The record is a 130-nucleotide RNA from Streptomyces jumonjinensis, which matches "Streptomyces RNA 5676" in Rfam. A reference for the family is Vockenhuber et al. (2011), "Deep sequencing-based identification of small non-coding RNAs in Streptomyces coelicolor", RNA Biol.

[Rfam]
RNA sequence: AGAUGAGAGAAACACCCCGCUCGCAGGGGACUGCGAGCGAGCCCGGGACAGCGCAUCCCCAGCCUUGUCCCGGGUGUGCGUUCGCGCACACCACCGGAGCCUCGCGUUCCGGAACUCCUCACCGAUCGGA
Numbered sequence: 001a002g003a004u005g006a007g008a009g010a011a012a013c014a015c016c017c018c019g020c021u022c023g024c025a026g027g028g029g030a031c032u033g034c035g036a037g038c039g040a041g042c043c044c045g046g047g048a049c050a051g052c053g054c055a056u057c058c059c060c061a062g063c064c065u066u067g068u069c070c071c072g073g074g075u076g077u078g079c080g081u082u083c084g085c086g087c088a089c090a091c092c093a094c095c096g097g098a099g100c101c102u103c104g105c106g107u108u109c110c111g112g113a114a115c116u117c118c119u120c121a122c123c124g125a126u127c128g129g130a
Stems, first nucleotide, its partner, number of pairs: 004121004009117002018039009042074006049067003053063002076089004094112007122129002
Identified by deep sequencing of transcriptome at the end of exponential growth phase.